Record summary: Shown here is a 158-nucleotide RNA from Brevibacillus brevis, a member of the family "c-di-AMP riboswitch aptamer (ydaO/yuaA leader)". The match comes from Rfam's covariance-model search (78 bits).
RNA sequence: CAAACAAAACAGCCGAAACUUCCUCUCGAAUGGAAGUGCGGGGGAGCUUUUUUACUUGCAGAUGAGAGAUCUGCAUGGGGUGAAUCGCCAAAGUGCGUAGGGUUGUUUCCUCAAUCCGAAUCCGUCAACUAACCUCGUAGGCCAAAAAAAGGAGACGA
Number, nucleotide and partner (000 for none) at each position: 001c000002a000003a000004a000005c000006a000007a000008a000009a000010c000011a000012g142013c141014c140015g000016a000017a000018a037019c036020u035021u034022c033023c032024u000025c000026u000027c000028g000029a000030a000031u000032g023033g022034a021035a020036g019037u018038g138039c137040g136041g135042g134043g133044g000045a000046g000047c000048u077049u000050u000051u000052u000053u000054a000055c000056u000057u000058g000059c000060a000061g000062a000063u000064g000065a000066g000067a000068g000069a000070u000071c000072u000073g000074c000075a000076u000077g048078g123079g122080g121081u000082g000083a000084a000085u000086c097087g096088c095089c000090a000091a000092a000093g000094u000095g088096c087097g086098u000099a000100g117101g116102g115103u114104u000105g000106u000107u000108u000109c000110c000111u000112c000113a000114a103115u102116c101117c100118g000119a000120a000121u080122c079123c078124g000125u000126c000127a000128a000129c000130u000131a000132a000133c043134c042135u041136c040137g039138u038139a000140g014141g013142c012143c000144a000145a000146a000147a000148a000149a000150a000151g000152g000153a000154g000155a000156c000157g000158a000